[Rfam]
Group I catalytic intron: a 244-nucleotide sequence from Mortierella polycephala. NCBI's taxonomy places the organism under Eukaryota, Fungi, Mortierellomycota, Mortierellaceae, Mortierella. Group I catalytic introns are large self-splicing ribozymes. They catalyse their own excision from mRNA, tRNA and rRNA precursors in a wide range of organisms. The core secondary structure consists of 9 paired regions (P1-P9). These fold to essentially two domains - the P4-P6 domain (formed from the stacking of P5, P4, P6 and P6a helices) and the P3-P9 domain (formed from the P8, P3, P7 and P9 helices). A reference for the family is Cech (1990), "Self-splicing of group I introns", Annu Rev Biochem. Rfam links the family to the GO term Group I intron splicing.
RNA sequence: AACCAUGGGUAAAAAUAAGCCCCUUAAAGUAGUAAUGCUUUAAUGCAAAUAGGGAAAAUUGCAAGAACCUCCAUCUUAUCAAUGGACAAUUUGCAGCGAAGCGUAUAUCAGUGUUUUAAAGGUAUACGAACGUUCAACGACUAAUCGGUGAGCUACACUAGCAAUAAACCGGACACGACACCCCUACAACCAUCUAAUAAUUAAGAGGUUGAUGACAUAGUCUAAGCCAGUAGGUAACUAUUGG
Numbered sequence: 001a002a003c004c005a006u007g008g009g010u011a012a013a014a015a016u017a018a019g020c021c022c023c024u025u026a027a028a029g030u031a032g033u034a035a036u037g038c039u040u041u042a043a044u045g046c047a048a049a050u051a052g053g054g055a056a057a058a059u060u061g062c063a064a065g066a067a068c069c070u071c072c073a074u075c076u077u078a079u080c081a082a083u084g085g086a087c088a089a090u091u092u093g094c095a096g097c098g099a100a101g102c103g104u105a106u107a108u109c110a111g112u113g114u115u116u117u118a119a120a121g122g123u124a125u126a127c128g129a130a131c132g133u134u135c136a137a138c139g140a141c142u143a144a145u146c147g148g149u150g151a152g153c154u155a156c157a158c159u160a161g162c163a164a165u166a167a168a169c170c171g172g173a174c175a176c177g178a179c180a181c182c183c184c185u186a187c188a189a190c191c192a193u194c195u196a197a198u199a200a201u202u203a204a205g206a207g208g209u210u211g212a213u214g215a216c217a218u219a220g221u222c223u224a225a226g227c228c229a230g231u232a233g234g235u236a237a238c239u240a241u242u243g244g
Base pairs, nucleotide, nucleotide: 005024007022008021009020010019028039029038030037050186051185052184053183060095061094062093063092064091065090070086071085072084073083074082096133097132102128103127104126109122137223139222140221141220142219143218189209190208191207193205195203196202197201229242230241231240232239233238